The record is a 128-nucleotide RNA from Bacillus sp. 165, which matches "ylbH leader" in Rfam.
About the family: This family is a putative regulatory RNA structure that is found upstream of the ylbH gene in B. subtilis and related low GC Gram-positive bacteria.
The literature on the family includes a 2004 paper in Proc Natl Acad Sci U S A by Barrick et al., "New RNA motifs suggest an expanded scope for riboswitches in bacterial genetic control".
Rfam classes the family as a cis-regulatory leader.
Lineage of the source: Bacteria > Bacillota > Caryophanales > Bacillaceae > Bacillus.
RNA sequence: AAAACAAAAACCCUGCUUUUUAUGCAAAAGCAGGGUCCUUCUUAUUCUAGUGAUACACUAGAAAGAAGGCAAAGGGAGAGGAGAAACCGGAGGAAGAACUUAUGGGGAAACGUAAGUCUUCUCCGCGG
Numbered sequence: 001a002a003a004a005c006a007a008a009a010a011c012c013c014u015g016c017u018u019u020u021u022a023u024g025c026a027a028a029a030g031c032a033g034g035g036u037c038c039u040u041c042u043u044a045u046u047c048u049a050g051u052g053a054u055a056c057a058c059u060a061g062a063a064a065g066a067a068g069g070c071a072a073a074g075g076g077a078g079a080g081g082a083g084a085a086a087c088c089g090g091a092g093g094a095a096g097a098a099c100u101u102a103u104g105g106g107g108a109a110a111c112g113u114a115a116g117u118c119u120u121c122u123c124c125g126c127g128g
Base pairs, nucleotide, nucleotide: 011035012034013033014032015031016030017029018028019027036076037075038074039073040072045063046062047061048060049059050058088125089124090123091122093121094120095119096118098117099116100115101114102113